This 110-nucleotide RNA sequence from Eumeta japonica belongs to the Rfam family "mir-277 microRNA precursor family". The base pairs follow the family's consensus structure, which was predicted with RNAalifold.

[Rfam]
RNA sequence: UGCGUCUCGGGGCUCGUGCCAGGAGUGCGUUUACACAGCGCGCGGCCAGUUUGCUUAUGUGCAAAUGUCGAUACUGUAAAUGCACUAUCUGGUACGACACUCCGGGACGC
Numbered sequence: 001u002g003c004g005u006c007u008c009g010g011g012g013c014u015c016g017u018g019c020c021a022g023g024a025g026u027g028c029g030u031u032u033a034c035a036c037a038g039c040g041c042g043c044g045g046c047c048a049g050u051u052u053g054c055u056u057a058u059g060u061g062c063a064a065a066u067g068u069c070g071a072u073a074c075u076g077u078a079a080a081u082g083c084a085c086u087a088u089c090u091g092g093u094a095c096g097a098c099a100c101u102c103c104g105g106g107a108c109g110c
Stems, first nucleotide, its partner, number of pairs: 008104004015096009025085001027083009

Notes: For this family Rfam cites "MicroRNAs of Bombyx mori identified by Solexa sequencing" (Liu et al., BMC Genomics, 2010). The source organism's lineage runs through Eukaryota, Pancrustacea, Allotriocarida, Glossata and Eumeta. Gene Ontology terms of the family: RISC complex and miRNA-mediated post-transcriptional gene silencing. It scores 75 bits against the family's covariance model.